[Rfam]
The record is an 80-nucleotide RNA sequence from Comamonas sp. JNW, which matches "Pseudomonas sRNA P9" in Rfam. The source organism's lineage runs through Bacteria, Betaproteobacteria, Burkholderiales, Comamonadaceae and Comamonas. This small RNA (sRNA) was computationally identified in the genome of the opportunistic pathogen Pseudomonas aeruginosa and its expression verified by northern blot analysis. Pairs were carried over by alignment from the consensus structure, which was predicted with RNAalifold. A reference for the family is Livny et al. (2006), "Identification of 17 Pseudomonas aeruginosa sRNAs and prediction of sRNA-encoding genes in 10 diverse pathogens using the bioinformatic tool sRNAPredict2", Nucleic Acids Res. It scores 48 bits against the family's covariance model. It is annotated as a non-coding RNA gene.

RNA sequence: CGAAUUAUUCGCAUCGUCAUACCGACGGUGGGAUAGCGCGCGGCCAGGUCACCAUGCAACCCACCCUGGAGGUGGGUUUU
Numbered sequence: 001c002g003a004a005u006u007a008u009u010c011g012c013a014u015c016g017u018c019a020u021a022c023c024g025a026c027g028g029u030g031g032g033a034u035a036g037c038g039c040g041c042g043g044c045c046a047g048g049u050c051a052c053c054a055u056g057c058a059a060c061c062c063a064c065c066c067u068g069g070a071g072g073u074g075g076g077u078u079u080u
Base pairs, nucleotide, nucleotide: 012030013029014028015027016026017025058078059077060076061075062074063073064072065071